[Rfam]
RNA: c-di-GMP-II-GAG riboswitch aptamer
Organism: Actinoplanes aureus
RNA sequence: AGAAAUUGGGGAGAUUGUGAUCCGGGCCGAGCUUCGAUCGGUCACCGCAUUGCGGCCCGGGGAGUCAGUGGUGAGACCGCCCCCAACCCGA
Numbered sequence: 001a002g003a004a005a006u007u008g009g010g011g012a013g014a015u016u017g018u019g020a021u022c023c024g025g026g027c028c029g030a031g032c033u034u035c036g037a038u039c040g041g042u043c044a045c046c047g048c049a050u051u052g053c054g055g056c057c058c059g060g061g062g063a064g065u066c067a068g069u070g071g072u073g074a075g076a077c078c079g080c081c082c083c084c085a086a087c088c089c090g091a
Base pairs, nucleotide, nucleotide: 006086007085008084009083010082011081013066014065015064022060023059024058025057026056027055028054029053040078041077042074043073044072045071046070